The record is a 386-nucleotide sequence from Haloactinospora alba, which matches "Bacterial RNase P class A" in Rfam.
NCBI's taxonomy places the organism under Bacteria, Bacillati, Actinomycetes, Streptosporangiales, Haloactinospora.
The family's RNA type in Rfam is ribozyme.
Rfam describes the family as follows. Ribonuclease P (RNase P) is a ubiquitous endoribonuclease, found in archaea, bacteria and eukarya as well as chloroplasts and mitochondria.
RNA sequence: AGAGUCGGCCAGGUGGUCGCGGCACCCGGGCUAUCCGGUGUCGAGGAAAGUCCGGACUCCACAGGGCAGGGUGGUCGGUAACACCGACCCGGGGCGACCCGCGGGAAAGUGCCACAGAAAACAGACCGCCACCGCGUGCGGUGGUAAGGGUGAAACGGUGGUGUAAGAGACCACCAGCGGCCGGAGUGAUCCGGUCGGCUUGGUAAACCCCACCCGGAGCAAGGUCAAGAAGGAAGGCUUCGGCCUUUCACGCGGACGGUUGAGGGCGGCCCGCCUGAGGUCCGCGGGUAGACCGCACCGAGGUUGCCGGCAACGGCAGCCCCAGAUGGAUGGCCGCCCGGUUCCACGGAACCCGACAGGAUCCGGCUUAUCGGCCGGCUCUCUCC
Numbered sequence: 001a002g003a004g005u006c007g008g009c010c011a012g013g014u015g016g017u018c019g020c021g022g023c024a025c026c027c028g029g030g031c032u033a034u035c036c037g038g039u040g041u042c043g044a045g046g047a048a049a050g051u052c053c054g055g056a057c058u059c060c061a062c063a064g065g066g067c068a069g070g071g072u073g074g075u076c077g078g079u080a081a082c083a084c085c086g087a088c089c090c091g092g093g094g095c096g097a098c099c100c101g102c103g104g105g106a107a108a109g110u111g112c113c114a115c116a117g118a119a120a121a122c123a124g125a126c127c128g129c130c131a132c133c134g135c136g137u138g139c140g141g142u143g144g145u146a147a148g149g150g151u152g153a154a155a156c157g158g159u160g161g162u163g164u165a166a167g168a169g170a171c172c173a174c175c176a177g178c179g180g181c182c183g184g185a186g187u188g189a190u191c192c193g194g195u196c197g198g199c200u201u202g203g204u205a206a207a208c209c210c211c212a213c214c215c216g217g218a219g220c221a222a223g224g225u226c227a228a229g230a231a232g233g234a235a236g237g238c239u240u241c242g243g244c245c246u247u248u249c250a251c252g253c254g255g256a257c258g259g260u261u262g263a264g265g266g267c268g269g270c271c272c273g274c275c276u277g278a279g280g281u282c283c284g285c286g287g288g289u290a291g292a293c294c295g296c297a298c299c300g301a302g303g304u305u306g307c308c309g310g311c312a313a314c315g316g317c318a319g320c321c322c323c324a325g326a327u328g329g330a331u332g333g334c335c336g337c338c339c340g341g342u343u344c345c346a347c348g349g350a351a352c353c354c355g356a357c358a359g360g361a362u363c364c365g366g367c368u369u370a371u372c373g374g375c376c377g378g379c380u381c382u383c384u385c386c
Stems, first nucleotide, its partner, number of pairs: 001382010011371001012338007020043007028035001048369003052366005057219004064272004069215005074088005089103001090101004104210002109208002111204003126149002128145007157175006177199001178197008223294004233285001236282003264276004302321008